Background:
The family of this 168-nucleotide RNA sequence from Penelope pileata is "Small Cajal body specific RNA 16". scaRNAs are a specific class of small nuclear RNAs which localise to the Cajal bodies and guide the modification of RNA polymerase II transcribed spliceosomal RNAs U1, U2, U4, U5 and U12. ACA47 belongs to the H/ACA box class of guide RNAs as it has the predicted hairpin-hinge-hairpin-tail structure, the conserved H/ACA-box motifs and is found associated with GAR1. For this family Rfam cites "Cajal body-specific small nuclear RNAs: a novel class of 2'-O-methylation and pseudouridylation guide RNAs" (Darzacq et al., EMBO J, 2002). Rfam 15.1 lists 790 matches to the family in 514 species. It scores 111 bits against the family's covariance model.
[Rfam]
RNA sequence: GAGGGCCUGGGGACGGCCACUGGCGGCUGCGUCUCAGCCCGGUGCCUGCUGGCCUCACCCGCGCCCCAGAUCAACCCCUGCGGGCUGCCCGCUGGGUCCCUCUGUGCAGUAACAGGUGUGAGCAUCCAUGCAGCUUUUUGGUGGUCAUGUAUGAUACUGCAUACAACG
Numbered sequence: 001g002a003g004g005g006c007c008u009g010g011g012g013a014c015g016g017c018c019a020c021u022g023g024c025g026g027c028u029g030c031g032u033c034u035c036a037g038c039c040c041g042g043u044g045c046c047u048g049c050u051g052g053c054c055u056c057a058c059c060c061g062c063g064c065c066c067c068a069g070a071u072c073a074a075c076c077c078c079u080g081c082g083g084g085c086u087g088c089c090c091g092c093u094g095g096g097u098c099c100c101u102c103u104g105u106g107c108a109g110u111a112a113c114a115g116g117u118g119u120g121a122g123c124a125u126c127c128a129u130g131c132a133g134c135u136u137u138u139u140g141g142u143g144g145u146c147a148u149g150u151a152u153g154a155u156a157c158u159g160c161a162u163a164c165a166a167c168g
Base pairs, nucleotide, nucleotide: 003066004065005064006063008061009060010059015054016053017052018051020048022046023045024044025039026038027037028036029035078095079094080093081091082090083089084088103163104162105161106160107159108158109157110156111155113153114152119147120146121145123143124142125141126140130137